[Rfam]
RNA sequence: AAGGCACAUCCCGAAAAGCCUGUAAUAGAGUAGGAA
Numbered sequence: 001a002a003g004g005c006a007c008a009u010c011c012c013g014a015a016a017a018g019c020c021u022g023u024a025a026u027a028g029a030g031u032a033g034g035a036a
Base pairs, nucleotide, nucleotide: 002021003020004019005018011034012033
DUF805b RNA: a 36-nucleotide RNA. Rfam's curators put it in the seed alignment. The family's consensus secondary structure is taken from published work.